RNA: c-di-GMP-II-GAG riboswitch aptamer
RNA sequence: GAUCUGGGGGGUGGCAGCGGACCGCGAGGUCCAACCAGCGCGGCGUCCUGAUCCGGUCGCCAAACCGUCGUGCUGGGCCAAUGGCGAGACCGACCCGUCGAUC
Numbered sequence: 001g002a003u004c005u006g007g008g009g010g011g012u013g014g015c016a017g018c019g020g021a022c023c024g025c026g027a028g029g030u031c032c033a034a035c036c037a038g039c040g041c042g043g044c045g046u047c048c049u050g051a052u053c054c055g056g057u058c059g060c061c062a063a064a065c066c067g068u069c070g071u072g073c074u075g076g077g078c079c080a081a082u083g084g085c086g087a088g089a090c091c092g093a094c095c096c097g098u099c100g101a102u103c
Base pairs, nucleotide, nucleotide: 001103002102003101004100007098009096010095011094013079014078015077023072024071025070026069027068029066055091056090057087058086059085060084061083